[Rfam]
RNA sequence: AAAACAAAAUUCUUAGGAGGGUCAUGAAAGGGCUAAUCAAAACGGCUCUAGUGAUUGAGGGCUCUACUCAAUCGCGACACUAUCAAAUUGCGGGGAGUUCCUAAAGCUUAAACUACCGCGGCUUGUCGAAAGAUUAAGCGCAGCAUUAGGCGUAAUGGCCUAAGGAUGGUAAAAACGUUUAAGAUGUUACAAUGGAUAAUCCGCAGCCAAGUCCGCAUAAAAAAGGAUGCAGUUCAACGAUUAAAUGGUAGUGGGUUGGACAUUAUAGAAGCCGUAUAGGCGGAAAUGUCCAGCUUAAGAUAUAAUCUACUCCCCUGAUGAAAAUCGAGG
Numbered sequence: 001a002a003a004a005c006a007a008a009a010u011u012c013u014u015a016g017g018a019g020g021g022u023c024a025u026g027a028a029a030g031g032g033c034u035a036a037u038c039a040a041a042a043c044g045g046c047u048c049u050a051g052u053g054a055u056u057g058a059g060g061g062c063u064c065u066a067c068u069c070a071a072u073c074g075c076g077a078c079a080c081u082a083u084c085a086a087a088u089u090g091c092g093g094g095g096a097g098u099u100c101c102u103a104a105a106g107c108u109u110a111a112a113c114u115a116c117c118g119c120g121g122c123u124u125g126u127c128g129a130a131a132g133a134u135u136a137a138g139c140g141c142a143g144c145a146u147u148a149g150g151c152g153u154a155a156u157g158g159c160c161u162a163a164g165g166a167u168g169g170u171a172a173a174a175a176c177g178u179u180u181a182a183g184a185u186g187u188u189a190c191a192a193u194g195g196a197u198a199a200u201c202c203g204c205a206g207c208c209a210a211g212u213c214c215g216c217a218u219a220a221a222a223a224a225g226g227a228u229g230c231a232g233u234u235c236a237a238c239g240a241u242u243a244a245a246u247g248g249u250a251g252u253g254g255g256u257u258g259g260a261c262a263u264u265a266u267a268g269a270a271g272c273c274g275u276a277u278a279g280g281c282g283g284a285a286a287u288g289u290c291c292a293g294c295u296u297a298a299g300a301u302a303u304a305a306u307c308u309a310c311u312c313c314c315c316u317g318a319u320g321a322a323a324a325u326c327g328a329g330g
Stems, first nucleotide, its partner, number of pairs: 005026002009022005031038001078253005084247002089205006099196003206233002211228004237308001239307005255294009316327004
Rfam assigns this 330-nucleotide RNA sequence from Monosporascus sp. CRB-8-3 to the family "Group I catalytic intron". The organism belongs to Monosporascus, within Eukaryota. About the family: Group I catalytic introns are large self-splicing ribozymes. For this family Rfam cites "Self-splicing of group I introns" (Cech, Annu Rev Biochem, 1990).